[Rfam]
RNA sequence: GAAGGAGGCAUCCAAAGGGAUCGCAUUGAUCCCAACUCUCUUUUUUCAUAAACUUUAUUCUUUUUUUUCUAAGCUUUGUAUAUAAAUAUACACAGAUGAAUUUGGAUCAUGCUAUCCCUUUGGAUUUCUCCUU
Number, nucleotide and partner (000 for none) at each position: 001g000002a133003a132004g131005g130006a129007g000008g127009c000010a125011u124012c123013c122014a121015a120016a119017g118018g117019g116020a115021u114022c000023g112024c111025a110026u109027u000028g108029a107030u106031c105032c104033c000034a000035a000036c000037u000038c000039u000040c000041u000042u000043u000044u000045u000046u000047c000048a000049u000050a000051a000052a000053c000054u000055u000056u000057a000058u000059u000060c000061u000062u000063u000064u000065u000066u000067u000068u000069c000070u000071a000072a000073g000074c000075u000076u000077u000078g000079u000080a000081u000082a000083u000084a000085a000086a000087u000088a000089u000090a000091c000092a000093c000094a000095g000096a000097u000098g000099a000100a000101u000102u000103u000104g032105g031106a030107u029108c028109a026110u025111g024112c023113u000114a021115u020116c019117c018118c017119u016120u015121u014122g013123g012124a011125u010126u000127u008128c000129u006130c005131c004132u003133u002

The family of this 133-nucleotide RNA sequence from Camellia sinensis is "mir-393 microRNA precursor family". Rfam links the family to the GO terms RISC complex and miRNA-mediated post-transcriptional gene silencing. The match comes from Rfam's covariance-model search (99 bits). NCBI's taxonomy places the organism under Eukaryota, Tracheophyta, Spermatophyta, eudicotyledons, Camellia.